[Rfam]
RNA sequence: AGUUCAUCCAGAGGGGACGAGGGAACGGCCCUACGACUCCCCGGCAACCGGCCGACCGAUCGGACACGGUGCCAACUCCGACCAGGUCGAAAGCCGAUCUGGUGCAGAUGAUGA
Number, nucleotide and partner (000 for none) at each position: 001a000002g000003u000004u111005c110006a109007u108008c107009c000010a000011g000012a000013g042014g041015g040016g039017a038018c000019g000020a000021g031022g030023g029024a000025a000026c080027g079028g078029c023030c022031c021032u000033a000034c000035g000036a000037c000038u017039c016040c015041c014042c013043g073044g072045c071046a070047a000048c069049c068050g065051g000052c063053c062054g000055a000056c000057c000058g000059a000060u000061c000062g053063g052064a000065c050066a000067c000068g049069g048070u046071g045072c044073c043074a000075a000076c000077u106078c028079c027080g026081a000082c102083c101084a100085g099086g098087u097088c096089g095090a000091a000092a000093g000094c000095c089096g088097a087098u086099c085100u084101g083102g082103u000104g000105c000106a077107g008108a007109u006110g005111a004112u000113g000114a000